Description
Shown here is a 490-nucleotide part of an RNA from Gossypium armourianum, a member of the family "Eukaryotic large subunit ribosomal RNA". The base pairs follow the family's consensus structure, which is taken from published work. Rfam links the family to the GO terms structural constituent of ribosome and ribosome.
RNA sequence: CUCCAAAGUUUCCCUAAGGAUAGCUGGAGCCCUUAGCGAGUUCUAUCGGGUAAAGCCAACGAUUAGAGGCAUUGUGGGGGCAACACCCUUAACCUAUUCUCAAACUUUAAAUAGGCAAGACGGCGCGGCUGCUUCGUUGAGCUGUGCUAUGGAAUCGAGAGCUCCAAGUGGACCAUUUUUGGUAAGUAAAACUAGCGAUACGAGAUGAAAUGAAAGUUGGGCUACGGUGCCCAAUUACGUGCUAACCUAGAACCUACAAAGGGUGUUAGUUGAUUAAGACAGCAGAACGGUGGUCAUGGAAGUCGAAAUCUGCUAAGGAGUGUGGAACAAAUCACCUGUCGAAUCAACUACCCAGAAAAUAGAUUAAACUUAAUCGCGCGACCUAUAACCGACCGUCGGGGAAAGGGCCAGGCCUCGAUGAGUAAGAGUAUGUGGUGGUGACUGCAAAACCCGAGGCGCGAGCCCUAGCAGAGCGACUAUCAGUGUAAAU
Numbered sequence: 001c002u003c004c005a006a007a008g009u010u011u012c013c014c015u016a017a018g019g020a021u022a023g024c025u026g027g028a029g030c031c032c033u034u035a036g037c038g039a040g041u042u043c044u045a046u047c048g049g050g051u052a053a054a055g056c057c058a059a060c061g062a063u064u065a066g067a068g069g070c071a072u073u074g075u076g077g078g079g080g081c082a083a084c085a086c087c088c089u090u091a092a093c094c095u096a097u098u099c100u101c102a103a104a105c106u107u108u109a110a111a112u113a114g115g116c117a118a119g120a121c122g123g124c125g126c127g128g129c130u131g132c133u134u135c136g137u138u139g140a141g142c143u144g145u146g147c148u149a150u151g152g153a154a155u156c157g158a159g160a161g162c163u164c165c166a167a168g169u170g171g172a173c174c175a176u177u178u179u180u181g182g183u184a185a186g187u188a189a190a191a192c193u194a195g196c197g198a199u200a201c202g203a204g205a206u207g208a209a210a211u212g213a214a215a216g217u218u219g220g221g222c223u224a225c226g227g228u229g230c231c232c233a234a235u236u237a238c239g240u241g242c243u244a245a246c247c248u249a250g251a252a253c254c255u256a257c258a259a260a261g262g263g264u265g266u267u268a269g270u271u272g273a274u275u276a277a278g279a280c281a282g283c284a285g286a287a288c289g290g291u292g293g294u295c296a297u298g299g300a301a302g303u304c305g306a307a308a309u310c311u312g313c314u315a316a317g318g319a320g321u322g323u324g325g326a327a328c329a330a331a332u333c334a335c336c337u338g339u340c341g342a343a344u345c346a347a348c349u350a351c352c353c354a355g356a357a358a359a360u361a362g363a364u365u366a367a368a369c370u371u372a373a374u375c376g377c378g379c380g381a382c383c384u385a386u387a388a389c390c391g392a393c394c395g396u397c398g399g400g401g402a403a404a405g406g407g408c409c410a411g412g413c414c415u416c417g418a419u420g421a422g423u424a425a426g427a428g429u430a431u432g433u434g435g436u437g438g439u440g441a442c443u444g445c446a447a448a449a450c451c452c453g454a455g456g457c458g459c460g461a462g463c464c465c466u467a468g469c470a471g472a473g474c475g476a477c478u479a480u481c482a483g484u485g486u487a488a489a490u
Stems, first nucleotide, its partner, number of pairs: 001428003009022001011020003025166006041120002044117001046115002053108001054106002061101002065097001067095003072092003076088002122148009173195001175193001177191005201212002216393005226383003235380001240376002262353002265351001267350008282339004288312003294306002313317001318333001323330001394420008431485001433482007442473001450468001455464003